RNA sequence: AAAAAGUUUUUUGGGGGAAGGGCCUGCCGAAUUCGAAUUUUCGAAUUCGGCAGGCCCUUCCCCCAAAAAACAAUUC
Numbered sequence: 001a002a003a004a005a006g007u008u009u010u011u012u013g014g015g016g017g018a019a020g021g022g023c024c025u026g027c028c029g030a031a032u033u034c035g036a037a038u039u040u041u042c043g044a045a046u047u048c049g050g051c052a053g054g055c056c057c058u059u060c061c062c063c064c065a066a067a068a069a070a071c072a073a074u075u076c
Stems, first nucleotide, its partner, number of pairs: 007070007015062003020057004025052001027050002

mir-129 microRNA precursor family: a 76-nucleotide RNA sequence from Chara braunii. A search with the family's covariance model found it, with a score of 49 bits. The source organism's lineage runs through Eukaryota, Viridiplantae, Streptophytina, Charophyceae and Chara. The family's consensus secondary structure was predicted with RNAalifold. The literature on the family includes a 2003 paper in RNA by Lagos-Quintana et al., "New microRNAs from mouse and human". Rfam 15.1 lists 1,242 matches to the family in 559 species.